[Rfam]
RNA sequence: AGCCUCAUCCUACAUGAGAAUAUGCACUGUCAGUGUCCAGAAUUGGUCAAUGUGGCUGAUUUGAGAGAGGUUAUGCUUCCAUCACAAUAAGUGCAUUGCAGCAGUGACAAUGAGACUUGUAACAUUU
Dot-bracket structure: .(((.(((............(..((((.....))))..)..........))).))).........(.(((.........(((..(...............)..))).........))).).......
The family of this 127-nucleotide sequence from Nannospalax galili is "Small nucleolar RNA SNORA1". Gene Ontology terms of the family: RNA processing and nucleolus. Taxonomically the source falls in Nannospalax (Eukaryota, Deuterostomia, Boreoeutheria, Myomorpha).